[Rfam]
RNA sequence: GAGAACUAUUAUUCCGAUGAAUCAAAUGAUAGGGUAACGCCUUAAAGGGUUCACUCGAUACCGAACUGCGUGGGAAUAUGUAAGAGUCGAAGCGUAGUAAGCUCGGUGUAAAAGUGGGAGAGCUUAUCGUAACAGAAGAAGCUGACGAAAGACUUUCAGAGGUGAAAGUUGUAGGUCAUACCACAAGAGUCGAGCGG
Dot-bracket structure: .................((((((.......((((.....))))....))))))(((....(((((((((((....(..........)....)))))))....)))).......((((....(((((((((...((......)).)))...((((((((....))))))))))))))....))))..)))........

Group II catalytic intron D1-D4-5: a 197-nucleotide sequence from Bacillus thuringiensis. The pairing is the family consensus, mapped onto this sequence. Gene Ontology term of the family: Group II intron splicing. Taxonomically the source falls in Bacillus thuringiensis serovar pakistani (Bacteria, Bacillati, Caryophanales, Bacillus). Rfam describes the family as follows. Group II introns are found in rRNA, tRNA and mRNA of organelles in fungi, plants and protists, and also in mRNA in bacteria. The family has 139 seed sequences and 720 matches in Rfam 15.1. Rfam's curators put it in the seed alignment.